RNA: c-di-GMP-I-GGC riboswitch aptamer
RNA sequence: CACGAUAAGGGCAAACCCUGAGUGAUCAGGGGACGCAAAGUAAAGGGUCUUUUCCAGACGUACACGGACGUAGGUAGCGAAAGACGAACUUGCUGUAGCGACAAAAAGAUAGCCUUACUGCCGAAG
Numbered sequence: 001c002a003c004g005a006u007a008a009g010g011g012c013a014a015a016c017c018c019u020g021a022g023u024g025a026u027c028a029g030g031g032g033a034c035g036c037a038a039a040g041u042a043a044a045g046g047g048u049c050u051u052u053u054c055c056a057g058a059c060g061u062a063c064a065c066g067g068a069c070g071u072a073g074g075u076a077g078c079g080a081a082a083g084a085c086g087a088a089c090u091u092g093c094u095g096u097a098g099c100g101a102c103a104a105a106a107a108g109a110u111a112g113c114c115u116u117a118c119u120g121c122c123g124a125a126g
Base pairs, nucleotide, nucleotide: 001126003123004122011036012035016031017030018029019028020027021026034112039119040118041117042116044115045114046113047110048109049108050107051106052105053104